A member of the RNA family "Small nucleolar RNA SNORD115" from Rattus norvegicus, 78 nucleotides long. Pairs were carried over by alignment from the consensus structure, which was predicted with PFOLD. By type it is a C/D-box small nucleolar RNA. A search with the family's covariance model found it, with a score of 72 bits. NCBI's taxonomy places the organism under Eukaryota, Bilateria, Glires, Rodentia, Rattus. The family has 32 seed sequences and 3,387 matches in Rfam 15.1. The literature on the family includes a 2000 paper in Proc Natl Acad Sci U S A by Cavaille et al., "Identification of brain-specific and imprinted small nucleolar RNA genes exhibiting an unusual genomic organization". Its family is annotated with RNA processing and nucleolus in the Gene Ontology.
[Rfam]
RNA sequence: GGAUCAAUGAUGACAACAAAAAGUCAUGCAGAGAGAUGAUGAUAAAAAAUCAUGCUCAAUAGGAUUAUGCUGAGGCCC
Numbered sequence: 001g002g003a004u005c006a007a008u009g010a011u012g013a014c015a016a017c018a019a020a021a022a023g024u025c026a027u028g029c030a031g032a033g034a035g036a037u038g039a040u041g042a043u044a045a046a047a048a049a050u051c052a053u054g055c056u057c058a059a060u061a062g063g064a065u066u067a068u069g070c071u072g073a074g075g076c077c078c
Stems, first nucleotide, its partner, number of pairs: 001078002004075001005072002008069002